[Rfam]
RNA sequence: UUAGGUAAAACCAAUGUAGGACUCACACUUUGAAAAUAAAACUCACAUAAAGUGGUGAAACAUACAUUAAUUUCACCCGA
Dot-bracket structure: ((.(((.(((..((((((....((((((((((...............))))))).)))....))))))..))).))).))
The record is an 80-nucleotide RNA sequence from Medicago truncatula, which matches "MIR5269 microRNA precursor family" in Rfam. Gene Ontology terms of the family: RISC complex and miRNA-mediated post-transcriptional gene silencing. The base pairs follow the family's consensus structure, which was predicted with RNAalifold. The match comes from Rfam's covariance-model search (76 bits). Taxonomically the source falls in Medicago (Eukaryota, Embryophyta, Tracheophyta, fabids).